Source information: Small nucleolar RNA U54: an 84-nucleotide RNA sequence from Brassica carinata. U54 is a C/D box small nucleolar RNA, which acts as a methylation guide for 18S ribosomal RNA in plants. The family is grouped with related families in Rfam's "U54 clan". Rfam classes the family as a C/D-box small nucleolar RNA. Taxonomically the source falls in Brassica (Eukaryota, Streptophytina, Magnoliopsida, Brassicales).

RNA sequence: GGCUCUGUGAUUACUUUGCCAAAUUGGCAGUAUACGCUAUUCUGAAUACAAUAUGAAAGAUACAUAUUUUAAUAUAUGAGAGCC
Number, nucleotide and partner (000 for none) at each position: 001g084002g083003c082004u081005c080006u000007g000008u000009g000010a000011u000012u000013a000014c000015u000016u000017u000018g000019c000020c000021a000022a000023a000024u000025u000026g000027g000028c000029a000030g000031u000032a000033u000034a000035c000036g000037c000038u000039a000040u000041u000042c000043u000044g000045a000046a000047u000048a000049c000050a000051a000052u000053a000054u000055g000056a000057a000058a000059g000060a000061u000062a000063c000064a000065u000066a000067u000068u000069u000070u000071a000072a000073u000074a000075u000076a000077u000078g000079a000080g005081a004082g003083c002084c001